Background: Metazoan signal recognition particle RNA: a 299-nucleotide RNA from Onychorhynchus coronatus. Gene Ontology terms of the family: signal recognition particle, endoplasmic reticulum targeting and SRP-dependent cotranslational protein targeting to membrane, signal sequence recognition. Clan: SRP clan. For this family Rfam cites "Towards the structure of the mammalian signal recognition particle" (Wild et al., Curr Opin Struct Biol, 2002). The signal recognition particle (SRP) is a universally conserved ribonucleoprotein. The match comes from Rfam's covariance-model search (80 bits).
RNA sequence: GCUGGAUAUGGUGGUUUGUGCCUGUGAUCUGAGCGCUGGGAGGGGUGAAGUUAAAGCAUGGCUUGAUUCCAGGAAUUCUGGGCUGCAACGAGUUGUGCUGAGCGGGUCUCAGUGUGAAGUUUGGCCUAGAUAUGGUGAUCCUGAGGGAACUAGGGGCCACCAGGUCGCCUAAGGAAGGGGGAACUGGCCCAGGUUGAGGUGGAGCAGGUCAAAAUUCAGGUGUUGAUCCACAGUUGGGAUGGUGUAGGUGAAUAUUCCCUGUAGCACAGGCUAGGAAUGAAAAAGAAACCCAGUUUCCU
Numbered sequence: 001g002c003u004g005g006a007u008a009u010g011g012u013g014g015u016u017u018g019u020g021c022c023u024g025u026g027a028u029c030u031g032a033g034c035g036c037u038g039g040g041a042g043g044g045g046u047g048a049a050g051u052u053a054a055a056g057c058a059u060g061g062c063u064u065g066a067u068u069c070c071a072g073g074a075a076u077u078c079u080g081g082g083c084u085g086c087a088a089c090g091a092g093u094u095g096u097g098c099u100g101a102g103c104g105g106g107u108c109u110c111a112g113u114g115u116g117a118a119g120u121u122u123g124g125c126c127u128a129g130a131u132a133u134g135g136u137g138a139u140c141c142u143g144a145g146g147g148a149a150c151u152a153g154g155g156g157c158c159a160c161c162a163g164g165u166c167g168c169c170u171a172a173g174g175a176a177g178g179g180g181g182a183a184c185u186g187g188c189c190c191a192g193g194u195u196g197a198g199g200u201g202g203a204g205c206a207g208g209u210c211a212a213a214a215u216u217c218a219g220g221u222g223u224u225g226a227u228c229c230a231c232a233g234u235u236g237g238g239a240u241g242g243u244g245u246a247g248g249u250g251a252a253u254a255u256u257c258c259c260u261g262u263a264g265c266a267c268a269g270g271c272u273a274g275g276a277a278u279g280a281a282a283a284a285g286a287a288a289c290c291c292a293g294u295u296u297c298c299u
Stems, first nucleotide, its partner, number of pairs: 002043002004023002007020005028041003047297006059286001063282002065278001067276003071272002078269003082265006090257001092256001094254003098250001102249002106245002109242001110238001115236003119231002121226005127220001129166003133162005139156004144151002168174002177217003185211005194202003